[Rfam]
Nucleotides: 122
Base pairs, nucleotide, nucleotide: 001122002121003120004119061086062085063084064083065082066081
Number, partner (000 for none) and nucleotide at each position: 001122g002121g003120u004119c005000g006000a007000u008000g009000a010000u011000g012000c013000g014000a015000a016000a017000u018000c019000c020000u021000a022000a023000g024000g025000c026000u027000u028000g029000u030000u031000u032000c033000u034000c035000a036000a037000a038000a039000c040000a041000u042000u043000c044000g045000c046000a047000g048000u049000g050000g051000c052000c053000g054000c055000c056000u057000g058000a059000g060000a061086g062085c063084u064083u065082u066081c067000g068000c069000c070000u071000c072000g073000c074000c075000g076000g077000g078000c079000u080000u081066g082065a083064g084063a085062g086061c087000u088000u089000g090000u091000g092000c093000u094000g095000c096000u097000c098000u099000a100000u101000c102000c103000u104000u105000c106000c107000u108000u109000g110000g111000a112000u113000g114000u115000c116000u117000g118000a119004g120003a121002c122001c
A member of the RNA family "Small nucleolar RNA SNORD14" from Ananas comosus, 122 nucleotides long. U14 small nucleolar RNA (U14 snoRNA) is required for early cleavages of eukaryotic precursor rRNAs. In yeasts, this molecule possess a stem-loop region (known as the Y-domain) which is essential for function. A similar structure, but with a different consensus sequence, is found in plants, but is absent in vertebrates. NCBI's taxonomy places the organism under Eukaryota, Mesangiospermae, Petrosaviidae, Poales, Ananas. It is annotated as a C/D-box small nucleolar RNA. Rfam links the family to the GO terms RNA processing and nucleolus. A search with the family's covariance model found it, with a score of 85 bits.